[Rfam]
RNA sequence: AUCGUUCAUUCACUCUAAAUGUAGCAGUGAACGGAAGUAGUCAAUUUUGAUGAAGGAACGCAUC
Numbered sequence: 001a002u003c004g005u006u007c008a009u010u011c012a013c014u015c016u017a018a019a020u021g022u023a024g025c026a027g028u029g030a031a032c033g034g035a036a037g038u039a040g041u042c043a044a045u046u047u048u049g050a051u052g053a054a055g056g057a058a059c060g061c062a063u064c
Stems, first nucleotide, its partner, number of pairs: 003060005009031005034061001040051003
The family of this 64-nucleotide sequence is "Glutamine riboswitch aptamer (glnA leader)". The sequence is in the family's curated seed alignment.